The family of this 34-nucleotide RNA from Lentibacillus jeotgali is "L31-Firmicutes ribosomal protein leader". The base pairs follow the family's consensus structure, which is taken from published work.
RNA sequence: CUCUGAAUGCAUAAGGAUUCAGGGCAAAAAGGAG
Numbered sequence: 001c002u003c004u005g006a007a008u009g010c011a012u013a014a015g016g017a018u019u020c021a022g023g024g025c026a027a028a029a030a031g032g033a034g
Stems, first nucleotide, its partner, number of pairs: 001024008